[Rfam]
RNA sequence: CAGUGUUACAUGUCUUUUAGAAUUUGUCUAACAGGCUUUCCGGUUUUUGCCGGAAAGCCCCU
Numbered sequence: 001c002a003g004u005g006u007u008a009c010a011u012g013u014c015u016u017u018u019a020g021a022a023u024u025u026g027u028c029u030a031a032c033a034g035g036c037u038u039u040c041c042g043g044u045u046u047u048u049g050c051c052g053g054a055a056a057g058c059c060c061c062u
Stems, first nucleotide, its partner, number of pairs: 034059011
The family of this 62-nucleotide RNA from Callithrix jacchus is "U7 small nuclear RNA".
Rfam describes the family as follows. Animal histone pre-mRNAs are spliced by a different mechanism than nuclear pre-mRNAs and self-splicing introns. This processing involves the U7 snRNP, which contains only one RNA species: U7.
The base pairs follow the family's consensus structure, which was predicted with PFOLD.